[Rfam]
RNA sequence: CAUAGGGGAUCUUCUGCUAAAACCGCCCACGUCCUGUGGGCAACGCAGAAGUCAGCACAUCCUGUGCA
Numbered sequence: 001c002a003u004a005g006g007g008g009a010u011c012u013u014c015u016g017c018u019a020a021a022a023c024c025g026c027c028c029a030c031g032u033c034c035u036g037u038g039g040g041c042a043a044c045g046c047a048g049a050a051g052u053c054a055g056c057a058c059a060u061c062c063u064g065u066g067c068a
Base pairs, nucleotide, nucleotide: 011051012050013049014048015047016046017045026040027039028038029037030036055067056066057065058064

Shown here is a 68-nucleotide RNA from Lentibacillus populi, a member of the family "Bacillaceae-1 RNA". The family's consensus secondary structure is taken from published work. By type it is a small RNA. Taxonomically the source falls in Lentibacillus (Bacteria, Bacillati, Bacilli, Bacillaceae). It scores 65 bits against the family's covariance model.